[Rfam]
RNA sequence: CGUCGUCUUCAGGGCGGGGUGAAAUUCCCCACCGGCGGUGAAGCUGCGGAAUACUGCAGCCAGCCCGCGAGCGCCUGAGUUAUCUCAGGGUCAGCAGAUCCGGUGUGAAUCCGGAGCCGACGGUGAAAGUCCGGAUGAGAGAAGAUGUCU
Numbered sequence: 001c002g003u004c005g006u007c008u009u010c011a012g013g014g015c016g017g018g019g020u021g022a023a024a025u026u027c028c029c030c031a032c033c034g035g036c037g038g039u040g041a042a043g044c045u046g047c048g049g050a051a052u053a054c055u056g057c058a059g060c061c062a063g064c065c066c067g068c069g070a071g072c073g074c075c076u077g078a079g080u081u082a083u084c085u086c087a088g089g090g091u092c093a094g095c096a097g098a099u100c101c102g103g104u105g106u107g108a109a110u111c112c113g114g115a116g117c118c119g120a121c122g123g124u125g126a127a128a129g130u131c132c133g134g135a136u137g138a139g140a141g142a143a144g145a146u147g148u149c150u
Stems, first nucleotide, its partner, number of pairs: 004147007017029003031130002033119002035068004063117002071095002099115005121133003
The family of this 150-nucleotide RNA from Cognatundibacterium luofuense is "FMN riboswitch aptamer (RFN element)". The base pairs follow the family's consensus structure, which is taken from published work. The organism belongs to Cognatundibacterium, within Bacteria.